[Rfam]
RNA sequence: AUGAAGUGAUAAUUCAGUUUACCCAUUUGCUGAGUACACAGGUGCUAACCUUCUUCCAACCCUCAGUUCCUAUUCUAGGAACAGGGAUACAUAGCCUCCAAAUACCCUGCAGUCUGCAGUGUUCGACUGUAGACAGCUUGUGUAUUGGUGGACUAUUAAUAAGAAUGACCGGUGUCAGCAGGGAUUGGUCUUUUUGGGCUCUAUCUCACUGAGAUGAGUGUUGGUAAAGAAAAAGAA
Numbered sequence: 001a002u003g004a005a006g007u008g009a010u011a012a013u014u015c016a017g018u019u020u021a022c023c024c025a026u027u028u029g030c031u032g033a034g035u036a037c038a039c040a041g042g043u044g045c046u047a048a049c050c051u052u053c054u055u056c057c058a059a060c061c062c063u064c065a066g067u068u069c070c071u072a073u074u075c076u077a078g079g080a081a082c083a084g085g086g087a088u089a090c091a092u093a094g095c096c097u098c099c100a101a102a103u104a105c106c107c108u109g110c111a112g113u114c115u116g117c118a119g120u121g122u123u124c125g126a127c128u129g130u131a132g133a134c135a136g137c138u139u140g141u142g143u144a145u146u147g148g149u150g151g152a153c154u155a156u157u158a159a160u161a162a163g164a165a166u167g168a169c170c171g172g173u174g175u176c177a178g179c180a181g182g183g184a185u186u187g188g189u190c191u192u193u194u195u196g197g198g199c200u201c202u203a204u205c206u207c208a209c210u211g212a213g214a215u216g217a218g219u220g221u222u223g224g225u226a227a228a229g230a231a232a233a234a235g236a237a
Stems, first nucleotide, its partner, number of pairs: 013237002018232003024220006030213002034209002039178001041176001043174004050167001051165005059088001061086003066082006091156004096151002104143002106140001109137002112134009181207005187201002190198002

A member of the RNA family "Small nucleolar RNA SNORD17" from Erinaceus europaeus, 237 nucleotides long. The snoRNA HBI-43 belongs to the C/D family of snoRNAs, guiding 2'O-ribose methylation at position U3797 of the 28S rRNA. Pseudouridylation in position U3797 is predicted to be guided by the H/ACA snoRNA ACA48. The literature on the family includes a 2001 paper in EMBO J by Huttenhofer et al., "RNomics: an experimental approach that identifies 201 candidates for novel, small, non-messenger RNAs in mouse". Pairs were carried over by alignment from the consensus structure, which was predicted with RNAalifold.